[Rfam]
RNA: Small nucleolar RNA SNORA26
Organism: Psophia crepitans
RNA sequence: UUGCCCUCUUAAGUCUGGCAGUGUCUUAAGUGGCCAACACAGAGGGGUAUAGAAGUUCUCUCUUAAAAGGCAAAGAUGAGGUUAUAACUCAUCUUUGGAUCAUGCUGAGAGGAACACAU
Numbered sequence: 001u002u003g004c005c006c007u008c009u010u011a012a013g014u015c016u017g018g019c020a021g022u023g024u025c026u027u028a029a030g031u032g033g034c035c036a037a038c039a040c041a042g043a044g045g046g047g048u049a050u051a052g053a054a055g056u057u058c059u060c061u062c063u064u065a066a067a068a069g070g071c072a073a074a075g076a077u078g079a080g081g082u083u084a085u086a087a088c089u090c091a092u093c094u095u096u097g098g099a100u101c102a103u104g105c106u107g108a109g110a111g112g113a114a115c116a117c118a119u
Base pairs, nucleotide, nucleotide: 002049003048004047005046006045007044009042010041016036017035019030056113058111059110060109061108062107071097072096073095074094075093076092078090079089080088082087